[Rfam]
RNA sequence: UGCCAUCCAGGGGAUGGGGUGCCCCCGUAACCGCCGCAAAGGCUGAUGACUCCUACUUGAGA
Dot-bracket structure: .........[[[[..(((((..]]]]......(((.....))).....))))).........
This 62-nucleotide RNA from Methylocystis bryophila belongs to the Rfam family "Fluoride riboswitch aptamer (crcB RNA motif)".
The match comes from Rfam's covariance-model search (58 bits).
NCBI's taxonomy places the organism under Bacteria, Pseudomonadati, Pseudomonadota, Methylocystaceae, Methylocystis.
Pairs were carried over by alignment from the consensus structure, which is taken from published work.